[Rfam]
RNA: Glycine riboswitch aptamer
RNA sequence: CACUCUGGAGAGAGGCGUUUCGGACGCCCACCGAAGGGGAAGUUUCGCCCGGCGACGGGCGGGAUAAGCUCUCAGGUACCGUGACAGAGGG
Numbered sequence: 001c002a003c004u005c006u007g008g009a010g011a012g013a014g015g016c017g018u019u020u021c022g023g024a025c026g027c028c029c030a031c032c033g034a035a036g037g038g039g040a041a042g043u044u045u046c047g048c049c050c051g052g053c054g055a056c057g058g059g060c061g062g063g064a065u066a067a068g069c070u071c072u073c074a075g076g077u078a079c080c081g082u083g084a085c086a087g088a089g090g091g
Base pairs, nucleotide, nucleotide: 001091003089004088005087006086007085014028015027016026017025030077031076032075033073034072037071038070039069043064044063045062046061047060048059049058